[Rfam]
RNA sequence: GGAUGAUGUCUCCUUAUCCGUAUCAAUGGAGGCACUCGGUCACGCUGUGGGUGAAGCAUUGCCUUAGACGCCGGUCGUCGAUGGCGUGAUGUGAGGAUGGGUUAGAUGCCCA
Numbered sequence: 001g002g003a004u005g006a007u008g009u010c011u012c013c014u015u016a017u018c019c020g021u022a023u024c025a026a027u028g029g030a031g032g033c034a035c036u037c038g039g040u041c042a043c044g045c046u047g048u049g050g051g052u053g054a055a056g057c058a059u060u061g062c063c064u065u066a067g068a069c070g071c072c073g074g075u076c077g078u079c080g081a082u083g084g085c086g087u088g089a090u091g092u093g094a095g096g097a098u099g100g101g102u103u104a105g106a107u108g109c110c111c112a
Base pairs, nucleotide, nucleotide: 001019002018003017004016007034008033009032010031011030012029013028035095036094037093038092039090040089041088042087043086044085045084046083049064050063051062052061053060054059067079068078069077070076098112099111100110101109102108
This 112-nucleotide RNA sequence from Ectobacillus ponti belongs to the Rfam family "epsC RNA". Pairs were carried over by alignment from the consensus structure, which is taken from published work.